[Rfam]
RNA sequence: GGGAUGUGAUGAGUGGUAAAUGCUCGCAACAAGAGAUGCGAGAGGGGCGUCCGCUCCAAGCCUGGUUACGACAACUGGGACGCCCACUUCUUAACCAAUCUGAUCCC
Numbered sequence: 001g002g003g004a005u006g007u008g009a010u011g012a013g014u015g016g017u018a019a020a021u022g023c024u025c026g027c028a029a030c031a032a033g034a035g036a037u038g039c040g041a042g043a044g045g046g047g048c049g050u051c052c053g054c055u056c057c058a059a060g061c062c063u064g065g066u067u068a069c070g071a072c073a074a075c076u077g078g079g080a081c082g083c084c085c086a087c088u089u090c091u092u093a094a095c096c097a098a099u100c101u102g103a104u105c106c107c
Stems, first nucleotide, its partner, number of pairs: 001107004014097004023042005045085005050079002063077004

Source information
The family of this 107-nucleotide RNA sequence from Sesamum indicum is "Small nucleolar RNA Z279/snoR105/snoR108". Its family is annotated with RNA processing and nucleolus in the Gene Ontology. The family's consensus secondary structure was predicted with PFOLD. NCBI's taxonomy places the organism under Eukaryota, Magnoliopsida, eudicotyledons, Gunneridae, Sesamum. On this family, see Marker et al., Curr Biol 2002: "Experimental RNomics: identification of 140 candidates for small non-messenger RNAs in the plant Arabidopsis thaliana".